[Rfam]
RNA sequence: CUAAACAUGAAAACUGCUAUUUUCCGUUUCUUUUUUUACUUUAGCGCCUGAUUGUCGGGGGCUUAAGCGCAAAGAAAAGAAACGAAAAAUCGCGCUGAAAGCCUCCCUCGUGGAGGCUUUUUUCGU
Number, nucleotide and partner (000 for none) at each position: 001c000002u000003a000004a000005a000006c000007a000008u000009g000010a000011a000012a000013a000014c000015u000016g093017c092018u000019a090020u000021u088022u087023u086024c000025c084026g083027u082028u081029u080030c079031u078032u077033u076034u075035u000036u073037u072038a000039c000040u000041u000042u000043a000044g000045c000046g055047c054048c000049u000050g000051a000052u000053u000054g047055u046056c000057g000058g068059g000060g000061g000062c000063u000064u000065a000066a000067g000068c058069g000070c000071a000072a037073a036074g000075a034076a033077a032078a031079g030080a029081a028082a027083c026084g025085a000086a023087a022088a021089a000090u019091c000092g017093c016094g000095c000096u000097g000098a120099a119100a118101g117102c116103c115104u114105c113106c112107c000108u000109c000110g000111u000112g106113g105114a104115g103116g102117c101118u100119u099120u098121u000122u000123u000124c000125g000126u000
This 126-nucleotide sequence from Erwinia sorbitola belongs to the Rfam family "Phenylalanine leader peptide". The base pairs follow the family's consensus structure, which was predicted with CMfinder. For this family Rfam cites "Nucleotide sequence of the leader region of the phenylalanine operon of Escherichia coli" (Zurawski et al., Proc Natl Acad Sci U S A, 1978). Gene Ontology term of the family: cellular amino acid metabolic process. Lineage of the source: Bacteria > Pseudomonadota > Enterobacterales > Erwiniaceae > Erwinia.